[Rfam]
This 354-nucleotide part of an RNA from Shuttleworthella satelles belongs to the Rfam family "Bacterial small subunit ribosomal RNA". Gene Ontology terms of the family: structural constituent of ribosome and ribosome. Clan: SSU clan. The source organism's lineage runs through Bacteria, Bacillota, Lachnospirales, Shuttleworthella and Shuttleworthella satelles. It scores 1570 bits against the family's covariance model.

RNA sequence: GGUGUAAAGGGAGCGUAGGCGGCAGAGCAAGUCUGAUGUGAAAGCCCGGGGCUCAACCCCGGUAGUGCAUUGGAAACUGUUCAGCUCGAGUGUCGGAGGGGUAAGCGGAAUUCCUGGUGUAGCGGUGAAAUGCGUAGAUAUCAGGAAGAACACCGGAGGCGAAGGCGGCUUACUGGACGAUUACUGACGCUGAGGCUCGAAAGCGUGGGGAGCGAACAGGAUUAGAUACCCUGGUAGUCCACGCUGUAAACGAUGAAUACUAGGUGUCGGUACCCGAAGGGUAUCGGUGCCGUCGCAAACGCAUUAAGUAUUCCACCUGGGGAGUACGUUCGCAAGAAUGAAACUCAAAGGAAU
Numbered sequence: 001g002g003u004g005u006a007a008a009g010g011g012a013g014c015g016u017a018g019g020c021g022g023c024a025g026a027g028c029a030a031g032u033c034u035g036a037u038g039u040g041a042a043a044g045c046c047c048g049g050g051g052c053u054c055a056a057c058c059c060c061g062g063u064a065g066u067g068c069a070u071u072g073g074a075a076a077c078u079g080u081u082c083a084g085c086u087c088g089a090g091u092g093u094c095g096g097a098g099g100g101g102u103a104a105g106c107g108g109a110a111u112u113c114c115u116g117g118u119g120u121a122g123c124g125g126u127g128a129a130a131u132g133c134g135u136a137g138a139u140a141u142c143a144g145g146a147a148g149a150a151c152a153c154c155g156g157a158g159g160c161g162a163a164g165g166c167g168g169c170u171u172a173c174u175g176g177a178c179g180a181u182u183a184c185u186g187a188c189g190c191u192g193a194g195g196c197u198c199g200a201a202a203g204c205g206u207g208g209g210g211a212g213c214g215a216a217c218a219g220g221a222u223u224a225g226a227u228a229c230c231c232u233g234g235u236a237g238u239c240c241a242c243g244c245u246g247u248a249a250a251c252g253a254u255g256a257a258u259a260c261u262a263g264g265u266g267u268c269g270g271u272a273c274c275c276g277a278a279g280g281g282u283a284u285c286g287g288u289g290c291c292g293u294c295g296c297a298a299a300c301g302c303a304u305u306a307a308g309u310a311u312u313c314c315a316c317c318u319g320g321g322g323a324g325u326a327c328g329u330u331c332g333c334a335a336g337a338a339u340g341a342a343a344c345u346c347a348a349a350g351g352a353a354u
Base pairs, nucleotide, nucleotide: 001317002316003315009314011198012197013196014195016192018191019190020189022085023084025082026081027080028079030078031077032074033073034072035071036070037069038068039067040066046062047061048060049059050058051057089185090184091183092181093180094179095178100174101173102172103171104170105169106168107151111147112146113145114144115143116142117141118140122133123132124131159166160165203244204243205242206241207240208239212238213237217233218232219231220230255313256312257311258310259309260308263291264290265289266288267287268286269285270284271283272282273281274280295302296301319346320345321344328339329338330337331336